[Rfam]
RNA sequence: UGCCUAAUCCCACCGGUAAACGGUGGGCACGGCAUAAAAAACCGAUCAAGGACUGUAAGCCUCUCGUGAGAGCAUCCUUGAUCGGUUAUCGGCCGAAAGGUCGGUAGGUGACGUAAGUCAUC
Numbered sequence: 001u002g003c004c005u006a007a008u009c010c011c012a013c014c015g016g017u018a019a020a021c022g023g024u025g026g027g028c029a030c031g032g033c034a035u036a037a038a039a040a041a042c043c044g045a046u047c048a049a050g051g052a053c054u055g056u057a058a059g060c061c062u063c064u065c066g067u068g069a070g071a072g073c074a075u076c077c078u079u080g081a082u083c084g085g086u087u088a089u090c091g092g093c094c095g096a097a098a099g100g101u102c103g104g105u106a107g108g109u110g111a112c113g114u115a116a117g118u119c120a121u122c
Stems, first nucleotide, its partner, number of pairs: 001034004009027007042085011055073002061070002087106008107122006

The family of this 122-nucleotide RNA sequence is "LOOT RNA".